[Rfam]
RNA: small nucleolar RNA snoR137
Organism: Vitis vinifera
Nucleotides: 137
Base pairs, nucleotide, nucleotide: 003059004058005057006056007055008054018047019046020045021044022043023042024041025040026039075131076130077129078128079127080126088117089116090115092113093112094111095110096109
Number, partner (000 for none) and nucleotide at each position: 001000g002000u003059u004058g005057c006056u007055u008054c009000u010000u011000u012000c013000a014000a015000a016000c017000c018047u019046g020045a021044g022043u023042g024041a025040c026039u027000a028000u029000u030000u031000u032000a033000c034000u035000a036000g037000u038000u039026g040025g041024u042023c043022a044021u045020u046019c047018a048000u049000a050000u051000u052000g053000a054008g055007a056006a057005g058004c059003a060000u061000a062000g063000a064000g065000g066000a067000a068000a069000a070000g071000a072000a073000a074000u075131g076130c077129c078128a079127g080126u081000u082000u083000u084000a085000a086000a087000c088117a089116g090115c091000a092113u093112g094111a095110u096109g097000u098000c099000c100000a101000u102000c103000c104000u105000a106000u107000a108000g109096c110095a111094u112093u113092g114000u115090g116089u117088u118000a119000c120000c121000u122000g123000u124000c125000u126080a127079u128078u129077g130076g131075u132000a133000a134000a135000u136000g137000c